This 126-nucleotide sequence belongs to the Rfam family "SAM-I/IV (S-adenosyl methionine) riboswitch aptamer".

RNA sequence: UAUCAACAUCAGGAGUGGUUUCAUAGUUGAAACCCACCAACCGAGCCUAGAUAAAUCAGGGAUCCGGUGGUUAGACCUCUAAAUGGUAGAUGUGCCCAGGAAAAUGGGAAACAUAAUAAGCCACCU
Number, nucleotide and partner (000 for none) at each position: 001u000002a000003u000004c000005a000006a093007c092008a091009u090010c089011a000012g000013g000014a000015g035016u000017g034018g033019u032020u031021u030022c029023a028024u000025a000026g000027u000028u023029g022030a021031a020032a019033c018034c017035c015036a071037c070038c069039a000040a000041c067042c066043g065044a063045g000046c061047c060048u059049a000050g000051a000052u000053a000054a000055a000056u000057c000058a000059g048060g047061g046062a000063u044064c000065c043066g042067g041068u000069g038070g037071u036072u000073a000074g000075a000076c000077c000078u000079c000080u000081a000082a000083a000084u000085g000086g000087u000088a000089g010090a009091u008092g007093u006094g000095c108096c107097c106098a105099g000100g000101a000102a000103a000104a000105u098106g097107g096108g095109a000110a000111a000112c000113a000114u000115a000116a000117u000118a000119a000120g000121c000122c000123a000124c000125c000126u000
The family is grouped with related families in Rfam's "SAM clan".